[Rfam]
MIR6152 microRNA precursor family: a 96-nucleotide RNA from Nicotiana sylvestris.
RNA sequence: UGGACAGAUUAUUGUAUUCAAUUGUAUUCACGGCAUGAAACAGGGGAUUACACUGUUUUUAAAUGGAAAGUGAAUCAAUUAACAUAAUUGUAACAA
Numbered sequence: 001u002g003g004a005c006a007g008a009u010u011a012u013u014g015u016a017u018u019c020a021a022u023u024g025u026a027u028u029c030a031c032g033g034c035a036u037g038a039a040a041c042a043g044g045g046g047a048u049u050a051c052a053c054u055g056u057u058u059u060u061a062a063a064u065g066g067a068a069a070g071u072g073a074a075u076c077a078a079u080u081a082a083c084a085u086a087a088u089u090g091u092a093a094c095a096a
Stems, first nucleotide, its partner, number of pairs: 003094001009090001011088005017082002020080002023077002026075006034065003037059007
Source information: It scores 89 bits against the family's covariance model. Lineage of the source: Eukaryota > Streptophyta > Embryophyta > lamiids > Nicotiana.